[Rfam]
RNA sequence: AUAAAAAAAUCCCCGCAGGCAUCUGCGGGGUCCUUCUAUUCCUUAAUAUGUUAAGGAGAAGGCAAAGGGAGAGGAGAAACCGGAGGAAGAACUUAUGGGGAAACGUAAGUCUUCUCCGCGG
Numbered sequence: 001a002u003a004a005a006a007a008a009a010u011c012c013c014c015g016c017a018g019g020c021a022u023c024u025g026c027g028g029g030g031u032c033c034u035u036c037u038a039u040u041c042c043u044u045a046a047u048a049u050g051u052u053a054a055g056g057a058g059a060a061g062g063c064a065a066a067g068g069g070a071g072a073g074g075a076g077a078a079a080c081c082g083g084a085g086g087a088a089g090a091a092c093u094u095a096u097g098g099g100g101a102a103a104c105g106u107a108a109g110u111c112u113u114c115u116c117c118g119c120g121g
Base pairs, nucleotide, nucleotide: 011030012029013028014027015026016025017024018023031069032068033067034066035065040057041056042055043054044053045052081118082117083116084115086114087113088112089111091110092109093108094107095106
RNA: ylbH leader
Organism: Bacillus subtilis